[Rfam]
A member of the RNA family "ZMP/ZTP riboswitch aptamer (pfl RNA motif)" from Leifsonia sp. Root60, 85 nucleotides long. The match comes from Rfam's covariance-model search (57 bits). Pairs were carried over by alignment from the consensus structure, which is taken from published work.
RNA sequence: UGAUCGGGUCGCAACUGGCGUUCGGAUGGGUGACCAUCGGGGAGCGAUGAGAAUCGGUUGGUGGCCGUUCGCCUGGGCCACGACA
Numbered sequence: 001u002g003a004u005c006g007g008g009u010c011g012c013a014a015c016u017g018g019c020g021u022u023c024g025g026a027u028g029g030g031u032g033a034c035c036a037u038c039g040g041g042g043a044g045c046g047a048u049g050a051g052a053a054u055c056g057g058u059u060g061g062u063g064g065c066c067g068u069u070c071g072c073c074u075g076g077g078c079c080a081c082g083a084c085a
Stems, first nucleotide, its partner, number of pairs: 004052002008048005015041002017073004026037004062080005